RNA sequence: UGCUGAGCCCCGCGACGCCACCGGACCCCCGACCUGGUGGUGUCGCGGGGCCUUCCA
Dot-bracket structure: .(..(.((((((((((((((((.............)))))))))))))))).)..).
Description
F6 TB sRNA: a 57-nucleotide RNA sequence from Pseudonocardia ammonioxydans. By type it is a small RNA. On this family, see Arnvig and Young, Mol Microbiol 2009: "Identification of small RNAs in Mycobacterium tuberculosis". It scores 55 bits against the family's covariance model. The family's consensus secondary structure is taken from published work.